Saccharopolyspora sRNA 350: a 510-nucleotide RNA from Streptomyces oceani. The match comes from Rfam's covariance-model search (103 bits). The family's consensus secondary structure was predicted with RNAfold.
RNA sequence: GUGCGGGUGGUGACCGGCCAGGUGUGCUGGGAGUCGGUCAGCACCUGGGCCCCGAGGAAGUCGCCGUCGCUCAGGACGUCCAGGACGCUCGUGCCGCCGUACGCGCCGGUGGUGCUCGUGCUCACCUUGCCGUGAGCGAGCAGGAUCACCUCCUCGGCCGGCUCGUGGGCGGUGGUGAGGGUCUCCCCGGCCGCGAGGUGCCGCUGGGUGAAACGUUCGGACAGGGCGGUCAGCGCGUGCUCGUCCGCCAGGUCGCGCAGCGCGGGCAACUCCCGCAGCUCCGGUGGCAGCACGCGCACCUCGCCAGCGGUGGUGGAGAAGGUCAGCCGACCGUCGCCGAGGGUGUAGGUCAGCCUGCGGUUGACCCGGUAGGAGCCGCUCUCGGUGUCCACCCAGGGCAGCAUGCGCAGCAGCCAGCGAGGGCUGAUCGACUGCGUCUGCGGCGGCGUCUUGGUGGUGGUGGCCAGGGUACGGGCCGCUGCCGGGCCGAGGCUGAGCCUUUGCUGUCGU
Numbered sequence: 001g002u003g004c005g006g007g008u009g010g011u012g013a014c015c016g017g018c019c020a021g022g023u024g025u026g027c028u029g030g031g032a033g034u035c036g037g038u039c040a041g042c043a044c045c046u047g048g049g050c051c052c053c054g055a056g057g058a059a060g061u062c063g064c065c066g067u068c069g070c071u072c073a074g075g076a077c078g079u080c081c082a083g084g085a086c087g088c089u090c091g092u093g094c095c096g097c098c099g100u101a102c103g104c105g106c107c108g109g110u111g112g113u114g115c116u117c118g119u120g121c122u123c124a125c126c127u128u129g130c131c132g133u134g135a136g137c138g139a140g141c142a143g144g145a146u147c148a149c150c151u152c153c154u155c156g157g158c159c160g161g162c163u164c165g166u167g168g169g170c171g172g173u174g175g176u177g178a179g180g181g182u183c184u185c186c187c188c189g190g191c192c193g194c195g196a197g198g199u200g201c202c203g204c205u206g207g208g209u210g211a212a213a214c215g216u217u218c219g220g221a222c223a224g225g226g227c228g229g230u231c232a233g234c235g236c237g238u239g240c241u242c243g244u245c246c247g248c249c250a251g252g253u254c255g256c257g258c259a260g261c262g263c264g265g266g267c268a269a270c271u272c273c274c275g276c277a278g279c280u281c282c283g284g285u286g287g288c289a290g291c292a293c294g295c296g297c298a299c300c301u302c303g304c305c306a307g308c309g310g311u312g313g314u315g316g317a318g319a320a321g322g323u324c325a326g327c328c329g330a331c332c333g334u335c336g337c338c339g340a341g342g343g344u345g346u347a348g349g350u351c352a353g354c355c356u357g358c359g360g361u362u363g364a365c366c367c368g369g370u371a372g373g374a375g376c377c378g379c380u381c382u383c384g385g386u387g388u389c390c391a392c393c394c395a396g397g398g399c400a401g402c403a404u405g406c407g408c409a410g411c412a413g414c415c416a417g418c419g420a421g422g423g424c425u426g427a428u429c430g431a432c433u434g435c436g437u438c439u440g441c442g443g444c445g446g447c448g449u450c451u452u453g454g455u456g457g458u459g460g461u462g463g464c465c466a467g468g469g470u471a472c473g474g475g476c477c478g479c480u481g482c483c484g485g486g487c488c489g490a491g492g493c494u495g496a497g498c499c500u501u502u503g504c505u506g507u508c509g510u
Base pairs, nucleotide, nucleotide: 006393007392008391009390010389014385015384016383021328022327028325029324030323034319035318038316039315040314042312043311044310045309048308053303054302055301057236061232063230064229065228066227067226068114069113070112071111078106080105083102085100086099087098089096121224122223125220126219129216130215133212135209137207139205140204143201147198152195156192157191158190159189160188161187163181164180169176170175237299238298239297240296243293244292245290247288248287252285253284254283255282257281259280260279261278264273265272332345333344334343335342357379358378359377360376365373366372394434395433396432400428402426403425406421408419410418440479441478442477443476447473448472449471450468451467452466453465454464455463481510483506484505485504487503489501490500491499
The family has 2 seed sequences and 1,170 matches in Rfam 15.1.